[Rfam]
RNA: Group I catalytic intron
Organism: Thermoanaerobacter brockii
RNA sequence: GAACCAUUUCUCACAGGCGUCCUGAGAAGCAAUUCUCAGGAGUAUCACCGGGUGAAUUGCUGGAAAAGCCUUAGAGCCCUUUAUACCACAGCAUAGCCGGAAACGGCAAGUGCGAUGGUUUGAAAAAUAAAGGGAUUGGCCAACCAGCAGCCAAGCUCCUGGACCGAAAGGUUGGAGAAGGUUCAACGAUCAGGACAUACCACCUAAGGGCAUAAAGCCUAUGGUGCUGAAGUCCGUAGGGAGAAAUCCCGAAGCGCCCGGCUCCUAUCAGAGAAUUGAUAGGAUGAAGAUAUGAUCUAUUCGGUAUCCGAAAGGAACCG
Numbered sequence: 001g002a003a004c005c006a007u008u009u010c011u012c013a014c015a016g017g018c019g020u021c022c023u024g025a026g027a028a029g030c031a032a033u034u035c036u037c038a039g040g041a042g043u044a045u046c047a048c049c050g051g052g053u054g055a056a057u058u059g060c061u062g063g064a065a066a067a068g069c070c071u072u073a074g075a076g077c078c079c080u081u082u083a084u085a086c087c088a089c090a091g092c093a094u095a096g097c098c099g100g101a102a103a104c105g106g107c108a109a110g111u112g113c114g115a116u117g118g119u120u121u122g123a124a125a126a127a128u129a130a131a132g133g134g135a136u137u138g139g140c141c142a143a144c145c146a147g148c149a150g151c152c153a154a155g156c157u158c159c160u161g162g163a164c165c166g167a168a169a170g171g172u173u174g175g176a177g178a179a180g181g182u183u184c185a186a187c188g189a190u191c192a193g194g195a196c197a198u199a200c201c202a203c204c205u206a207a208g209g210g211c212a213u214a215a216a217g218c219c220u221a222u223g224g225u226g227c228u229g230a231a232g233u234c235c236g237u238a239g240g241g242a243g244a245a246a247u248c249c250c251g252a253a254g255c256g257c258c259c260g261g262c263u264c265c266u267a268u269c270a271g272a273g274a275a276u277u278g279a280u281a282g283g284a285u286g287a288a289g290a291u292a293u294g295a296u297c298u299a300u301u302c303g304g305u306a307u308c309c310g311a312a313a314g315g316a317a318c319c320g
Stems, first nucleotide, its partner, number of pairs: 008019001010017001025036003048261004053256002058149006068140003150182002157175002163172003186298001188297005263284009304318002307316003